[Rfam]
Rfam assigns this 119-nucleotide sequence from Ancylostoma ceylanicum to the family "U5 spliceosomal RNA". Rfam's curators write: U5 RNA is a component of both types of known spliceosome. Pairs were carried over by alignment from the consensus structure, which is taken from published work. A search with the family's covariance model found it, with a score of 86 bits.
RNA sequence: AUCUCUGGUUCCUUUGCAUUUAACCGAGAAAAUCUUUCGCCUUUUACUAAAGAUUUCCGUGCAAGGGAGCGUUUUAUGAGUAUUUGCCAAUUUUUGGAAUCCCCUCGAAAGAGCGGGAU
Numbered sequence: 001a002u003c004u005c006u007g008g009u010u011c012c013u014u015u016g017c018a019u020u021u022a023a024c025c026g027a028g029a030a031a032a033u034c035u036u037u038c039g040c041c042u043u044u045u046a047c048u049a050a051a052g053a054u055u056u057c058c059g060u061g062c063a064a065g066g067g068a069g070c071g072u073u074u075u076a077u078g079a080g081u082a083u084u085u086g087c088c089a090a091u092u093u094u095u096g097g098a099a100u101c102c103c104c105u106c107g108a109a110a111g112a113g114c115g116g117g118a119u
Stems, first nucleotide, its partner, number of pairs: 003080003008070011030056008098119001100118004105113001